[Rfam]
RNA sequence: UAUAUUUGCCGUUCAAUUCUGAAAAUCAGGGUUAUUACAUAAAAAUUAUUAAAAUAAUAUUGGAAUG
Dot-bracket structure: ..............(((((((.....)))))))..................................

Record summary:
A member of the RNA family "S15-Flavobacteria ribosomal protein leader", 67 nucleotides long. It is annotated as a cis-regulatory leader. Clan: Ribosomal Protein S15 Leader clan. On this family, see Eckert and Weinberg, BMC Microbiol 2020: "Discovery of 20 novel ribosomal leader candidates in bacteria and archaea".